[Rfam]
RNA: Small nucleolar RNA snoR99
Organism: Olea europaea
RNA sequence: UUGCUUUAGGGAUGAUUAGUCUCUGAAAUUCAAUUAUUUCAUCCAUCCAUCACUUUGUCAGCAUUUCUCUUUCCAAUGAUUCGCUGGCCAUGCAGGGGUGGAACAAUU
Dot-bracket structure: .........................................((((((.........((((((....................))))))........))))))......
Numbered sequence: 001u002u003g004c005u006u007u008a009g010g011g012a013u014g015a016u017u018a019g020u021c022u023c024u025g026a027a028a029u030u031c032a033a034u035u036a037u038u039u040c041a042u043c044c045a046u047c048c049a050u051c052a053c054u055u056u057g058u059c060a061g062c063a064u065u066u067c068u069c070u071u072u073c074c075a076a077u078g079a080u081u082c083g084c085u086g087g088c089c090a091u092g093c094a095g096g097g098g099u100g101g102a103a104c105a106a107u108u
Stems, first nucleotide, its partner, number of pairs: 042102006057088006